[Rfam]
RNA sequence: UAAGACAAGAAGAAGCACCCGCUUCUCACCUGAUCGACGCUCUAUUGCAGUUGACUGGUUCCGAACUUUUUUAAACGAUUGGAGACGUGUGGGUGCAUUUUGUACCGACGCUUUUUUAAUGUA
Numbered sequence: 001u002a003a004g005a006c007a008a009g010a011a012g013a014a015g016c017a018c019c020c021g022c023u024u025c026u027c028a029c030c031u032g033a034u035c036g037a038c039g040c041u042c043u044a045u046u047g048c049a050g051u052u053g054a055c056u057g058g059u060u061c062c063g064a065a066c067u068u069u070u071u072u073a074a075a076c077g078a079u080u081g082g083a084g085a086c087g088u089g090u091g092g093g094u095g096c097a098u099u100u101u102g103u104a105c106c107g108a109c110g111c112u113u114u115u116u117u118a119a120u121g122u123a
Stems, first nucleotide, its partner, number of pairs: 011026006028059003036052003039048002088110003092106006
RNA: Ribosomal protein L20 leader
Organism: Oceanobacillus picturae